Plant signal recognition particle RNA: a 293-nucleotide RNA sequence from Stentor coeruleus. Lineage of the source: Eukaryota > Alveolata > Heterotrichida > Stentoridae > Stentor. Its family is annotated with SRP-dependent cotranslational protein targeting to membrane, signal sequence recognition and signal recognition particle, endoplasmic reticulum targeting in the Gene Ontology. On this family, see Batey et al., Science 2000: "Crystal structure of the ribonucleoprotein core of the signal recognition particle". Rfam classes the family as a non-coding RNA gene. A search with the family's covariance model found it, with a score of 105 bits. Pairs were carried over by alignment from the consensus structure, which is taken from published work.
Nucleotides: 293
Base pairs, nucleotide, nucleotide: 001040002039003038004023005022006021007020008019009018028037029036030035044291045290046289047288050285051284052283055281056280057278059276060275061274062273064271067268068267069266070265074262075261076260077259082257083256084255085254086253088252090251091250092249094246100244101243102242103241104240105239106238107237108233109232113229114228115227117224118223119222120221121220122219123218124217125216126163127162128161129160130159131158132157133156134155135154138151139150140149141148164169171214172213173212174211175210182205183204184203189198190197191196
Number, partner (000 for none) and nucleotide at each position: 001040u002039c003038u004023g005022a006021a007020g008019a009018g010000g011000g012000u013000a014000g015000c016000g017000a018009c019008u020007c021006u022005u023004u024000g025000u026000a027000a028037c029036a030035c031000a032000a033000g034000u035030g036029u037028g038003g039002g040001a041000c042000u043000u044291g045290g046289c047288u048000g049000a050285c051284u052283g053000g054000c055281g056280g057278c058000a059276u060275g061274u062273a063000a064271g065000g066000g067268u068267c069266a070265u071000u072000g073000u074262g075261g076260u077259u078000u079000u080000c081000c082257a083256c084255u085254u086253a087000c088252g089000g090251g091250g092249u093000a094246u095000g096000u097000c098000g099000a100244g101243a102242g103241u104240c105239u106238g107237u108233c109232c110000u111000a112000g113229c114228c115227a116000u117224a118223u119222c120221a121220g122219g123218g124217g125216u126163c127162g128161u129160g130159g131158g132157u133156g134155u135154g136000a137000a138151u139150a140149u141148c142000u143000g144000g145000a146000a147000g148141g149140g150139u151138a152000g153000a154135c155134a156133c157132g158131c159130u160129c161128a162127u163126g164169u165000u166000a167000a168000a169164g170000a171214g172213g173212g174211g175210g176000g177000g178000a179000a180000c181000g182205c183204u184203u185000g186000a187000g188000g189198c190197u191196g192000g193000a194000a195000a196191c197190a198189g199000a200000g201000c202000a203184g204183a205182g206000a207000u208000a209000a210175c211174u212173c213172c214171c215000c216125g217124u218123c219122c220121u221120u222119g223118a224117u225000u226000a227115u228114g229113g230000a231000a232109g233108g234000a235000u236000c237107g238106c239105a240104g241103a242102u243101u244100u245000g246094a247000g248000u249092a250091c251090u252088c253086u254085a255084g256083g257082u258000u259077a260076a261075c262074c263000a264000u265070g266069u267068g268067a269000a270000a271064c272000c273062u274061g275060c276059a277000g278057g279000u280056c281055c282000a283052c284051a285050g286000a287000a288047g289046g290045c291044u292000u293000u